RNA sequence: CUCUUGAGAACCGCGAGAAGCGGUCAGCCUACCGGGCUGAUCGACAGUGCAUCUCUUAAAAGGACGUUUAUUCCUCGGCUCUUGCCGAAAAACUCAACAGGCGGGUGCGUUCUGGUAGCGAUAUACCGUGAACGUUCGCCCCCGCC
Number, nucleotide and partner (000 for none) at each position: 001c000002u000003c000004u000005u000006g055007a054008g053009a052010a000011c000012c000013g050014c049015g000016a000017g000018a000019a000020g000021c043022g042023g041024u040025c039026a038027g037028c036029c000030u000031a000032c000033c000034g000035g000036g028037c027038u026039g025040a024041u023042c022043g021044a000045c000046a000047g000048u000049g014050c013051a000052u009053c008054u007055c006056u000057u000058a000059a000060a000061a000062g000063g000064a000065c000066g000067u000068u000069u000070a000071u000072u000073c000074c000075u000076c000077g086078g085079c084080u000081c000082u000083u000084g079085c078086c077087g000088a000089a000090a000091a000092a000093c000094u000095c000096a000097a000098c000099a000100g146101g145102c144103g143104g142105g141106u000107g139108c138109g137110u000111u000112c134113u000114g000115g000116u000117a000118g000119c128120g127121a000122u000123a000124u000125a000126c000127c120128g119129u000130g000131a000132a000133c000134g112135u000136u000137c109138g108139c107140c000141c105142c104143c103144g102145c101146c100
This 146-nucleotide sequence belongs to the Rfam family "RT-14 RNA". The sequence is in the family's curated seed alignment. The base pairs follow the family's consensus structure, which is taken from published work.